[Rfam]
RNA sequence: CCUGAGGAAGUGUUUUGCCUACUUGGACAUAAAGCACGCCCUUGAGGGAGCGAUUUCUGUCCACGUAGGCAAAACGUUUCCUCAGGG
Numbered sequence: 001c002c003u004g005a006g007g008a009a010g011u012g013u014u015u016u017g018c019c020u021a022c023u024u025g026g027a028c029a030u031a032a033a034g035c036a037c038g039c040c041c042u043u044g045a046g047g048g049a050g051c052g053a054u055u056u057c058u059g060u061c062c063a064c065g066u067a068g069g070c071a072a073a074a075c076g077u078u079u080c081c082u083c084a085g086g087g
Stems, first nucleotide, its partner, number of pairs: 001086021024063006031056003035052001037050001040047002
MIR7486 microRNA precursor family: an 87-nucleotide RNA sequence from Gossypium mustelinum.
Its family is annotated with miRNA-mediated post-transcriptional gene silencing and RISC complex in the Gene Ontology.